[Rfam]
This 157-nucleotide RNA sequence from Chionoecetes opilio belongs to the Rfam family "U1 spliceosomal RNA". The base pairs follow the family's consensus structure, which is taken from published work. Gene Ontology terms of the family: pre-mRNA 5'-splice site binding, mRNA 5'-splice site recognition and U1 snRNP. The family's RNA type in Rfam is spliceosomal small nuclear RNA. About the family: U1 is a small nuclear RNA (snRNA) component of the spliceosome (involved in pre-mRNA splicing).
RNA sequence: CAUCUUACCUGGCAAAAGAGAACCGCGACCCUGAAAGCGGUUUUCUCGGGAGAGGGCCCCCCAUUGCCCCCGGCGGUGCUGACCCUUGCAUUAACCCAAAUGGGGUUAACUCGAGUCGAAUUUUUUGUUAGCGGGGUUGCGUUCACGCAUUCCCUUU
Numbered sequence: 001c002a003u004c005u006u007a008c009c010u011g012g013c014a015a016a017a018g019a020g021a022a023c024c025g026c027g028a029c030c031c032u033g034a035a036a037g038c039g040g041u042u043u044u045c046u047c048g049g050g051a052g053a054g055g056g057c058c059c060c061c062c063a064u065u066g067c068c069c070c071c072g073g074c075g076g077u078g079c080u081g082a083c084c085c086u087u088g089c090a091u092u093a094a095c096c097c098a099a100a101u102g103g104g105g106u107u108a109a110c111u112c113g114a115g116u117c118g119a120a121u122u123u124u125u126u127g128u129u130a131g132c133g134g135g136g137u138u139g140c141g142u143u144c145a146c147g148c149a150u151u152c153c154c155u156u157u
Stems, first nucleotide, its partner, number of pairs: 012117001014116001017046010048086003052083001054080002058076002061073002089113001092109001093107004133155004138149004
Dot-bracket structure: ...........(.(..((((((((((..........)))))))))).(((.(.((..((.((.........)).))..))..))))..(..(((((.......)))).)...)..))...............((((.((((....))))..))))..